[Rfam]
RNA sequence: AGCACCUUUAAAUACAGUCCAGAGAGGCUGGCAAGGUGAACGAAUGAGAGUGACGGAUAGGGGUCUACACUACGAGUGUAUAAGGGGCUCAGUUUAGCCGUAUCCGAUACUCUCAGUAUGUCCGUGAACCUUGCCAUAAGUGCAAGGUUUUUUGUUU
Numbered sequence: 001a002g003c004a005c006c007u008u009u010a011a012a013u014a015c016a017g018u019c020c021a022g023a024g025a026g027g028c029u030g031g032c033a034a035g036g037u038g039a040a041c042g043a044a045u046g047a048g049a050g051u052g053a054c055g056g057a058u059a060g061g062g063g064u065c066u067a068c069a070c071u072a073c074g075a076g077u078g079u080a081u082a083a084g085g086g087g088c089u090c091a092g093u094u095u096a097g098c099c100g101u102a103u104c105c106g107a108u109a110c111u112c113u114c115a116g117u118a119u120g121u122c123c124g125u126g127a128a129c130c131u132u133g134c135c136a137u138a139a140g141u142g143c144a145a146g147g148u149u150u151u152u153u154g155u156u157u
Stems, first nucleotide, its partner, number of pairs: 003038006015030005045115008054106005122154001124152001126150009
Rfam assigns this 157-nucleotide RNA sequence from Paenibacillus xerothermodurans to the family "PyrR binding site".
The base pairs follow the family's consensus structure, which is taken from published work.
Rfam links the family to the GO terms pyrimidine nucleobase biosynthetic process and pyrimidine nucleobase transport.
A search with the family's covariance model found it, with a score of 61 bits.